[Rfam]
RNA: mir-4872 microRNA precursor family
RNA sequence: UCAUCAAGUGGUGCCGGGGUAAUUAAAACUCUGAGUUCUUAUAGCUUCAGAGUUUUGUUACCCUUGCUCCAUAUGGG
Number, nucleotide and partner (000 for none) at each position: 001u077002c076003a000004u000005c075006a074007a000008g072009u000010g070011g069012u000013g067014c066015c000016g064017g063018g062019g000020u060021a059022a058023u057024u000025a056026a055027a054028a053029c052030u051031c050032u049033g048034a047035g045036u044037u000038c000039u000040u000041a000042u000043a000044g036045c035046u000047u034048c033049a032050g031051a030052g029053u028054u027055u026056u025057g023058u022059u021060a020061c000062c018063c017064u016065u000066g014067c013068u000069c011070c010071a000072u008073a000074u006075g005076g002077g001